[Rfam]
RNA sequence: GGAACGGGCCUUUCAGGCAUCCUCUCCUAAAACUUUCAAGCCGUCCUUCGGGGCGGCUUUUUUUUUGCCCUGU
Numbered sequence: 001g002g003a004a005c006g007g008g009c010c011u012u013u014c015a016g017g018c019a020u021c022c023u024c025u026c027c028u029a030a031a032a033c034u035u036u037c038a039a040g041c042c043g044u045c046c047u048u049c050g051g052g053g054c055g056g057c058u059u060u061u062u063u064u065u066u067g068c069c070c071u072g073u
Base pairs, nucleotide, nucleotide: 008018009017010016011015039058040057041056042055043054044053045052046051
RNA: Makes More Granules Regulator RNA (mmgR)